[Rfam]
RNA: Bacterial RNase P class A
Organism: Candidatus Nitrospira nitrosa
RNA sequence: GCGGAAGGCUGGAUGGUUGCUCGGGGCUUCGGCUCCGAGAGGAAAGUCCGGACUCCAUGGGCAGGGCGCUGGGUAACUCCCAGGCGGAGUAAUCCGACACCAGCACCACAGAAAACAAACCGCCGAUGGCCAAGGCAACGGGAUCCCAUCUGGUUGCUGCGGAUCAGGUAAGGGUGAAACGGUGGGGUAAGAGCCCACCGCGGGGGUGGUGACACCACCGGCACGGUAAGCGUCGCCUGGUGCAAGGCCAAAUAGGAAGACAGGUGCCGUGCUCCUUACGGACUGCGGUACGCCGACUGGCCCGGUCGAGGUCUUCGGGUAGGUCGCUUGAGGUUCGGGGUAACUCGAAUCCCAGAGAAAUGAUCAUCCAUGCAAAGGGGGAGACUUCUUUGCGGGACAGAAUCCGGCUUAUAGGCCUUCUAUCCAC
Numbered sequence: 001g002c003g004g005a006a007g008g009c010u011g012g013a014u015g016g017u018u019g020c021u022c023g024g025g026g027c028u029u030c031g032g033c034u035c036c037g038a039g040a041g042g043a044a045a046g047u048c049c050g051g052a053c054u055c056c057a058u059g060g061g062c063a064g065g066g067c068g069c070u071g072g073g074u075a076a077c078u079c080c081c082a083g084g085c086g087g088a089g090u091a092a093u094c095c096g097a098c099a100c101c102a103g104c105a106c107c108a109c110a111g112a113a114a115a116c117a118a119a120c121c122g123c124c125g126a127u128g129g130c131c132a133a134g135g136c137a138a139c140g141g142g143a144u145c146c147c148a149u150c151u152g153g154u155u156g157c158u159g160c161g162g163a164u165c166a167g168g169u170a171a172g173g174g175u176g177a178a179a180c181g182g183u184g185g186g187g188u189a190a191g192a193g194c195c196c197a198c199c200g201c202g203g204g205g206g207u208g209g210u211g212a213c214a215c216c217a218c219c220g221g222c223a224c225g226g227u228a229a230g231c232g233u234c235g236c237c238u239g240g241u242g243c244a245a246g247g248c249c250a251a252a253u254a255g256g257a258a259g260a261c262a263g264g265u266g267c268c269g270u271g272c273u274c275c276u277u278a279c280g281g282a283c284u285g286c287g288g289u290a291c292g293c294c295g296a297c298u299g300g301c302c303c304g305g306u307c308g309a310g311g312u313c314u315u316c317g318g319g320u321a322g323g324u325c326g327c328u329u330g331a332g333g334u335u336c337g338g339g340g341u342a343a344c345u346c347g348a349a350u351c352c353c354a355g356a357g358a359a360a361u362g363a364u365c366a367u368c369c370a371u372g373c374a375a376a377g378g379g380g381g382a383g384a385c386u387u388c389u390u391u392g393c394g395g396g397a398c399a400g401a402a403u404c405c406g407g408c409u410u411a412u413a414g415g416c417c418u419u420c421u422a423u424c425c426a427c
Stems, first nucleotide, its partner, number of pairs: 001423001003421008011412001012368007020039008044410003048407005053242001055240002059303004064238005069083005084098001085096004099233002103231002105227003120173002122169003127166003131162001181199006200222001201220003205216004246325004256316006294308005332351008